[Rfam]
RNA: Small nucleolar RNA SNORA23
Nucleotides: 181
Base pairs, nucleotide, nucleotide: 013090014089029082032079033078034077035074036073037072038071039070040069042067044065045064046063049059050058051057106174107173109171110170120160121159122158123157124156125155128152129151132145133144135142136141
Number, partner (000 for none) and nucleotide at each position: 001000g002000g003000u004000g005000g006000a007000u008000g009000g010000u011000g012000u013090g014089c015000u016000c017000a018000g019000u020000g021000u022000a023000g024000u025000c026000u027000g028000u029082g030000u031000u032079a033078u034077g035074u036073g037072c038071u039070g040069c041000u042067g043000c044065g045064g046063g047000a048000c049059u050058g051057u052000g053000u054000u055000u056000u057051a058050c059049a060000g061000c062000g063046u064045c065044c066000a067042c068000a069040g070039c071038a072037g073036u074035g075000c076000u077034c078033a079032u080000g081000c082029c083000u084000c085000a086000c087000c088000u089014g090013c091000a092000g093000c094000c095000a096000u097000a098000g099000a100000c101000u102000a103000a104000c105000u106174g107173g108000u109171g110170a111000u112000c113000c114000a115000u116000a117000g118000u119000a120160c121159u122158g123157g124156c125155c126000c127000u128152u129151g130000a131000c132145g133144u134000c135142u136141u137000c138000a139000u140000u141136g142135a143000c144133a145132u146000u147000a148000u149000a150000c151129c152128a153000u154000u155125g156124g157123u158122c159121g160120g161000c162000c163000u164000c165000c166000a167000u168000a169000c170110u171109c172000u173107c174106c175000u176000a177000c178000a179000a180000u181000c